Source information: The family of this 101-nucleotide RNA sequence from Pseudoponticoccus marisrubri is "TPP riboswitch aptamer (THI element)".
[Rfam]
RNA sequence: AGGCGUCUGUUGGGGUGCCCCUCGGGGCUGAGAUGCGGCGACGCAAACCCAUUGAACCUGAACCGGUUAGGACCGGCGUAGGAAACAGCCCUUGCGACCGC
Numbered sequence: 001a002g003g004c005g006u007c008u009g010u011u012g013g014g015g016u017g018c019c020c021c022u023c024g025g026g027g028c029u030g031a032g033a034u035g036c037g038g039c040g041a042c043g044c045a046a047a048c049c050c051a052u053u054g055a056a057c058c059u060g061a062a063c064c065g066g067u068u069a070g071g072a073c074c075g076g077c078g079u080a081g082g083a084a085a086c087a088g089c090c091c092u093u094g095c096g097a098c099c100g101c
Base pairs, nucleotide, nucleotide: 007088008087009086010085011051012050013049014048016045017028018027019026020025035044036043037042057082058081059080060079063076064075065074066073